[Rfam]
RNA sequence: GUGGGUAUCUGGAUGUGGUUGGCUCUGGCGGUCCUCUCACAUUUACAUAUUCACAG
Numbered sequence: 001g002u003g004g005g006u007a008u009c010u011g012g013a014u015g016u017g018g019u020u021g022g023c024u025c026u027g028g029c030g031g032u033c034c035u036c037u038c039a040c041a042u043u044u045a046c047a048u049a050u051u052c053a054c055a056g
Base pairs, nucleotide, nucleotide: 001054002053003052004051005050006049007048008047010045011044012043013042014041015040016039017038018036021033022032023031024030
Dot-bracket structure: ((((((((.(((((((((..((((.....))))..).)))))))).))))))))..
Rfam assigns this 56-nucleotide sequence from Drosophila melanogaster to the family "mir-1003 microRNA precursor family".